[Rfam]
The record is a 97-nucleotide RNA sequence from Diceros bicornis, which matches "mir-544 microRNA precursor family" in Rfam. On this family, see Chiang et al., Genes Dev 2010: "Mammalian microRNAs: experimental evaluation of novel and previously annotated genes". Rfam 15.1 lists 10,750 matches to the family in 132 species. The match comes from Rfam's covariance-model search (69 bits). Pairs were carried over by alignment from the consensus structure, which was predicted with RNAalifold.

RNA sequence: AUUACCUUGGACCUUGCUGAAAGGCAGAUUCUGGUCCAGUUGGUCUGGGAUGGGGCCUGAGAUUCUGCAUUUCCAACAAGCUCCCAGGUGAUGCAGU
Numbered sequence: 001a002u003u004a005c006c007u008u009g010g011a012c013c014u015u016g017c018u019g020a021a022a023g024g025c026a027g028a029u030u031c032u033g034g035u036c037c038a039g040u041u042g043g044u045c046u047g048g049g050a051u052g053g054g055g056c057c058u059g060a061g062a063u064u065c066u067g068c069a070u071u072u073c074c075a076a077c078a079a080g081c082u083c084c085c086a087g088g089u090g091a092u093g094c095a096g097u
Base pairs, nucleotide, nucleotide: 003090004089005088009084010083013080014079015078016077018075019074020072021071022070024068025067026066027065028064030062031061032060